[Rfam]
RNA sequence: AGUGGAAAAUCGAAUAUUUCUCGUAUAUCUUUGGGAAUAUGGCCCAAAAGUCUCUACCCGGGAACCGUACAAUUUCCGGACUACGAGAAAAAUCGUUUUUUCU
Numbered sequence: 001a002g003u004g005g006a007a008a009a010u011c012g013a014a015u016a017u018u019u020c021u022c023g024u025a026u027a028u029c030u031u032u033g034g035g036a037a038u039a040u041g042g043c044c045c046a047a048a049a050g051u052c053u054c055u056a057c058c059c060g061g062g063a064a065c066c067g068u069a070c071a072a073u074u075u076c077c078g079g080a081c082u083a084c085g086a087g088a089a090a091a092a093u094c095g096u097u098u099u100u101u102c103u
Stems, first nucleotide, its partner, number of pairs: 018089008030048006058079007
The record is a 103-nucleotide RNA sequence from Novibacillus thermophilus, which matches "Purine riboswitch aptamer" in Rfam. A search with the family's covariance model found it, with a score of 84 bits. Rfam describes the family as follows. Riboswitches are metabolite binding domains within certain messenger RNAs that serve as precision sensors for their corresponding targets.